A member of the RNA family "PreQ1 (pre queuosine) riboswitch aptamer" from Mannheimia varigena, 45 nucleotides long.
On this family, see Reader et al., J Biol Chem 2004: "Identification of four genes necessary for biosynthesis of the modified nucleoside queuosine".
The match comes from Rfam's covariance-model search (53 bits).
Its family is annotated with queuosine biosynthetic process in the Gene Ontology.
The organism belongs to Mannheimia varigena, within Bacteria.
Pairs were carried over by alignment from the consensus structure.

RNA sequence: UAUUCCGUGGUUCGUAAACCUCCCACGCAAAAAAACUAAGGAUAU
Numbered sequence: 001u002a003u004u005c006c007g008u009g010g011u012u013c014g015u016a017a018a019c020c021u022c023c024c025a026c027g028c029a030a031a032a033a034a035a036c037u038a039a040g041g042a043u044a045u
Stems, first nucleotide, its partner, number of pairs: 006027005015038002
Rfam's curators write: This family is a bacterial riboswitch that binds to the metabolite preQ1, an intermediate in the biosynthesis of the modified nucleoside queuosine from GTP. One example of this riboswitch is located in the leader of the Bacillus subtilis ykvJKLM (queCDEF) operon which encodes four genes necessary for queuosine production.